Shown here is an 88-nucleotide RNA from Nadsonia fulvescens, a member of the family "tRNA". NCBI's taxonomy places the organism under Eukaryota, Ascomycota, Dipodascomycetes, Nadsonia, Nadsonia fulvescens var. elongata. Pairs were carried over by alignment from the consensus structure, which is taken from published work.
RNA sequence: GCUCCUUUAGCUCAGUUGGUAGAGCGUCAGUCUCAUAAGGCUACUUCAAGUUAUCUGAAGGUCGAGAGUUCGAACCUCCCAGGGAGCA
Numbered sequence: 001g002c003u004c005c006u007u008u009a010g011c012u013c014a015g016u017u018g019g020u021a022g023a024g025c026g027u028c029a030g031u032c033u034c035a036u037a038a039g040g041c042u043a044c045u046u047c048a049a050g051u052u053a054u055c056u057g058a059a060g061g062u063c064g065a066g067a068g069u070u071c072g073a074a075c076c077u078c079c080c081a082g083g084g085a086g087c088a
Stems, first nucleotide, its partner, number of pairs: 001087007010025004027058004064080001066078003